[Rfam]
Source information
Shown here is a 54-nucleotide RNA sequence, a member of the family "Editing element of GABA-3 exon 9". The family's consensus secondary structure is taken from published work. It is annotated as a cis-regulatory element.
RNA sequence: AAAGUGGCAUAUGCGACGGCCAUGGACUGGUUCAUAGCCGUCUGUUAUGCCUUU
Numbered sequence: 001a002a003a004g005u006g007g008c009a010u011a012u013g014c015g016a017c018g019g020c021c022a023u024g025g026a027c028u029g030g031u032u033c034a035u036a037g038c039c040g041u042c043u044g045u046u047a048u049g050c051c052u053u054u
Stems, first nucleotide, its partner, number of pairs: 001054003006051003010047002013045002015042006022035005